The family of this 119-nucleotide RNA sequence from Metabacillus sediminilitoris is "RNA Staph. aureus E (RoxS)". The base pairs follow the family's consensus structure, which is taken from published work. Gene Ontology term of the family: regulation of translational initiation. Taxonomically the source falls in Metabacillus (Bacteria, Bacillota, Caryophanales, Bacillaceae). The family's RNA type in Rfam is small RNA. About the family: It was shown to be regulated by the presence of nitric oxide (NO). In Bacillus subtilis it controls expression of genes with functions related to oxidative stress and oxidation-reduction reactions and it was renamed RoxS (for related to oxidative stress).
RNA sequence: GUGAAAUUAAUCACAUACAAACAUUUACCCCUUUGUUUGACCGUGAAAAAUUUCUCCCAUCCCCUUUGUUGUCGUUAAGACAUAAGAAAAAGACCUUGUACUUUGUACAAGGUCUUUUU
Dot-bracket structure: ..((((((..((((...((((((..........))))))...))))..))))))...............(..(.....)......)...(((((((((((.....)))))))))))...